[Rfam]
RNA sequence: CCAGCCUCAUGACGGUUUGCCUUCAAACCAGCCUGCUGGUGGGGCAGACCCGAUGAUCUGGCGUG
Numbered sequence: 001c002c003a004g005c006c007u008c009a010u011g012a013c014g015g016u017u018u019g020c021c022u023u024c025a026a027a028c029c030a031g032c033c034u035g036c037u038g039g040u041g042g043g044g045c046a047g048a049c050c051c052g053a054u055g056a057u058c059u060g061g062c063g064u065g
Stems, first nucleotide, its partner, number of pairs: 001065001004062002014050010029038003

Description: This 65-nucleotide RNA from Rhinopomastus cyanomelas belongs to the Rfam family "Selenocysteine insertion sequence 1". Rfam's curators write: The incorporation of selenocysteine into a protein sequence is directed by an in-frame UGA codon (usually a stop codon) within the coding region of the mRNA. Selenoprotein mRNAs contain a conserved secondary structure in the 3' UTR that is required for the distinction of UGA stop from UGA selenocysteine. The family has 61 seed sequences and 3,793 matches in Rfam 15.1. NCBI's taxonomy places the organism under Eukaryota, Opisthokonta, Bilateria, Vertebrata, Rhinopomastus. The base pairs follow the family's consensus structure, which is taken from published work. Rfam classes the family as a cis-regulatory element.